Mammalian CPEB3 ribozyme: an 80-nucleotide RNA sequence from Alligator mississippiensis.
RNA sequence: AGAGGUCACGAGUUUGAGGCCAUAGCAAAAGCGCUAAUGGCAUGGCCCUGUCAGAUUCCAACAAAUCUGCAAAUUCUGCU
Numbered sequence: 001a002g003a004g005g006u007c008a009c010g011a012g013u014u015u016g017a018g019g020c021c022a023u024a025g026c027a028a029a030a031g032c033g034c035u036a037a038u039g040g041c042a043u044g045g046c047c048c049u050g051u052c053a054g055a056u057u058c059c060a061a062c063a064a065a066u067c068u069g070c071a072a073a074u075u076c077u078g079c080u
Stems, first nucleotide, its partner, number of pairs: 016048001018047004024080004029075002031043001033041001052069006
From the family's description: The mammalian CPEB3 ribozyme is a self cleaving RNA located in the second intron of the CPEB3 gene which belongs to a family of genes regulating messenger RNA polyadenylation. A search with the family's covariance model found it, with a score of 46 bits. The family's consensus secondary structure is taken from published work. The source organism's lineage runs through Eukaryota, Gnathostomata, Sauria, Alligatorinae and Alligator.